[Rfam]
RNA sequence: AUGUGUAUGGAUAUCGAUGGUGUUCAGCUCCAAGGACAGGUGUGUUUAAUCUGUGUGUGGAAGUGUUCAGCACCAGGGACAUGUAUGUAUGUCU
Number, nucleotide and partner (000 for none) at each position: 001a000002u000003g000004u085005g084006u083007a082008u081009g080010g000011a000012u000013a000014u000015c000016g000017a000018u075019g074020g073021u072022g071023u070024u069025c000026a067027g066028c065029u000030c063031c000032a000033a000034g056035g000036a054037c053038a052039g051040g050041u049042g047043u000044g000045u000046u000047u042048a000049a041050u040051c039052u038053g037054u036055g000056u034057g000058u000059g000060g000061a000062a000063g030064u000065g028066u027067u026068c000069a024070g023071c022072a021073c020074c019075a018076g000077g000078g000079a000080c009081a008082u007083g006084u005085a004086u000087g000088u000089a000090u000091g000092u000093c000094u000
mir-2060 microRNA precursor family: a 94-nucleotide RNA from Branchiostoma belcheri. Its family is annotated with RISC complex and miRNA-mediated post-transcriptional gene silencing in the Gene Ontology. The base pairs follow the family's consensus structure, which was predicted with RNAalifold. A search with the family's covariance model found it, with a score of 63 bits.